[Rfam]
RNA sequence: GGUAUCGUGAGGUAGAAUCUGAAGGAAGCUGUAGGUAAAGCCACGGCCUGAGGAACACGAACCGUAUACAAGGCUAUACAGUUCGGAUGAGUUUGCACAACAAAACGAAAUCCAGCGCUGCCAAGGGACUGUGUAGUAAAUGCAGUAGGAAAAUGGGGAAAAUGGUGCCAGG
Numbered sequence: 001g002g003u004a005u006c007g008u009g010a011g012g013u014a015g016a017a018u019c020u021g022a023a024g025g026a027a028g029c030u031g032u033a034g035g036u037a038a039a040g041c042c043a044c045g046g047c048c049u050g051a052g053g054a055a056c057a058c059g060a061a062c063c064g065u066a067u068a069c070a071a072g073g074c075u076a077u078a079c080a081g082u083u084c085g086g087a088u089g090a091g092u093u094u095g096c097a098c099a100a101c102a103a104a105a106c107g108a109a110a111u112c113c114a115g116c117g118c119u120g121c122c123a124a125g126g127g128a129c130u131g132u133g134u135a136g137u138a139a140a141u142g143c144a145g146u147a148g149g150a151a152a153a154u155g156g157g158g159a160a161a162a163u164g165g166u167g168c169c170a171g172g
Stems, first nucleotide, its partner, number of pairs: 003014004029171003036164001041158002044155002047149004062145001064143004073137003077133007085113004091106004

This 172-nucleotide RNA from Thermoanaerobacteraceae bacterium SP2 belongs to the Rfam family "Group II catalytic intron D1-D4-3".
A search with the family's covariance model found it, with a score of 113 bits.
Pairs were carried over by alignment from the consensus structure.
Group II introns are found in rRNA, tRNA and mRNA of organelles in fungi, plants and protists, and also in mRNA in bacteria.
The source organism's lineage runs through Bacteria, Bacillota, Clostridia, Thermoanaerobacterales and Thermoanaerobacteraceae.